[Rfam]
Notes:
The record is a 131-nucleotide RNA sequence from Atlantisia rogersi, which matches "Small Cajal body specific RNA 23" in Rfam. scaRNAs are a specific class of small nuclear RNAs which localise to the Cajal bodies and guide the modification of RNA polymerase II transcribed spliceosomal RNAs U1, U2, U4, U5 and U12. ACA11 belongs to the H/ACA box class of guide RNAs as it has the predicted hairpin-hinge-hairpin-tail structure,the conserved H/ACA-box motifs and is found associated with GAR1. H/ACA snRNAs are predicted to guide the modification of uridines to pseudouridines in substrate RNAs however, no target RNA has been identified for scaRNA ACA11. Rfam links the family to the GO terms Cajal body, nucleolus and RNA processing. The base pairs follow the family's consensus structure, which was predicted with RNAfold.
RNA sequence: GUGCUCACAAGAACACCUAUCCUGCCACGUGGCUGAGAUGAGUUCUGGGAAAACGUGAGCUAGAGCAGGAGUAUUGCUUUGGGAGUGCCACGUUCCAGCCUACGUGAGACACUACAGUUUCCAAUACAACA
Numbered sequence: 001g002u003g004c005u006c007a008c009a010a011g012a013a014c015a016c017c018u019a020u021c022c023u024g025c026c027a028c029g030u031g032g033c034u035g036a037g038a039u040g041a042g043u044u045c046u047g048g049g050a051a052a053a054c055g056u057g058a059g060c061u062a063g064a065g066c067a068g069g070a071g072u073a074u075u076g077c078u079u080u081g082g083g084a085g086u087g088c089c090a091c092g093u094u095c096c097a098g099c100c101u102a103c104g105u106g107a108g109a110c111a112c113u114a115c116a117g118u119u120u121c122c123a124a125u126a127c128a129a130c131a
Stems, first nucleotide, its partner, number of pairs: 003060006012044003017040001019039003025032002071127001073125004079117003084113004089108001091106001092103002
The organism belongs to Atlantisia, within Eukaryota. The family's RNA type in Rfam is small Cajal body RNA.